[Rfam]
RNA sequence: AUAAAUUGCUAGGGGCGCCAUUGGCUGAGAGGUUUAUACCGACCCUUGUACCUGAUCUGGAUAAUACCAGCGUAGGAAAGCACUAUGAAUUUUAU
Numbered sequence: 001a002u003a004a005a006u007u008g009c010u011a012g013g014g015g016c017g018c019c020a021u022u023g024g025c026u027g028a029g030a031g032g033u034u035u036a037u038a039c040c041g042a043c044c045c046u047u048g049u050a051c052c053u054g055a056u057c058u059g060g061a062u063a064a065u066a067c068c069a070g071c072g073u074a075g076g077a078a079a080g081c082a083c084u085a086u087g088a089a090u091u092u093u094a095u
Stems, first nucleotide, its partner, number of pairs: 007082004011046004017025003032039002051076004057070004
This 95-nucleotide RNA from Terrisporobacter othiniensis belongs to the Rfam family "TPP riboswitch aptamer (THI element)". Gene Ontology term of the family: thiamine pyrophosphate binding.